Rfam assigns this 71-nucleotide RNA from Nyctibius bracteatus to the family "Small nucleolar RNA SNORD99". The family's RNA type in Rfam is C/D-box small nucleolar RNA. Pairs were carried over by alignment from the consensus structure, which was predicted with RNAalifold. Taxonomically the source falls in Nyctibius (Eukaryota, Archelosauria, Archosauria, Neoaves). Clan: SNORD58 clan. For this family Rfam cites "Purified box C/D snoRNPs are able to reproduce site-specific 2'-O-methylation of target RNA in vitro" (Galardi et al., Mol Cell Biol, 2002).
[Rfam]
RNA sequence: GCUGGCCCGUGAUGACUCCUCUCUUUGGAGACAGUUGGAUGAAUCUUGCGGAUAUGGGGCUGAGGCCAGGC
Numbered sequence: 001g002c003u004g005g006c007c008c009g010u011g012a013u014g015a016c017u018c019c020u021c022u023c024u025u026u027g028g029a030g031a032c033a034g035u036u037g038g039a040u041g042a043a044u045c046u047u048g049c050g051g052a053u054a055u056g057g058g059g060c061u062g063a064g065g066c067c068a069g070g071c
Stems, first nucleotide, its partner, number of pairs: 002069004